[Rfam]
About this RNA
A member of the RNA family "6S / SsrS RNA" from Ructibacterium gallinarum, 190 nucleotides long. By type it is a non-coding RNA gene.
RNA sequence: AAAUCCCUGCUUUGUUUGUGAUAAAGGUUACAAUGUAAAACCAACACAUUUACGAAGGGGUCUUGUCUCCAAAAGCGGCGCACAUGCCUCAUGCUUAUGCAUCCAGUGGACUUGUAAUGUUUUUGGGCGUUUCCCCACCUGGAUUCCAGGUUUUUACUAAACCUUUUCAUCACGGCACGGUGGGGCUUUU
Numbered sequence: 001a002a003a004u005c006c007c008u009g010c011u012u013u014g015u016u017u018g019u020g021a022u023a024a025a026g027g028u029u030a031c032a033a034u035g036u037a038a039a040a041c042c043a044a045c046a047c048a049u050u051u052a053c054g055a056a057g058g059g060g061u062c063u064u065g066u067c068u069c070c071a072a073a074a075g076c077g078g079c080g081c082a083c084a085u086g087c088c089u090c091a092u093g094c095u096u097a098u099g100c101a102u103c104c105a106g107u108g109g110a111c112u113u114g115u116a117a118u119g120u121u122u123u124u125g126g127g128c129g130u131u132u133c134c135c136c137a138c139c140u141g142g143a144u145u146c147c148a149g150g151u152u153u154u155u156a157c158u159a160a161a162c163c164u165u166u167u168c169a170u171c172a173c174g175g176c177a178c179g180g181u182g183g184g185g186c187u188u189u190u
Stems, first nucleotide, its partner, number of pairs: 002188002005185007013177003017174003035157002037154006057136003064129003068126001070125007082113001087109002090106001
Rfam describes the family as follows. E. coli 6S RNA was the first non coding RNA to be sequenced, but its function was unknown until recently. On this family, see Wassarman and Storz, Cell 2000: "6S RNA regulates E. coli RNA polymerase activity". A search with the family's covariance model found it, with a score of 64 bits.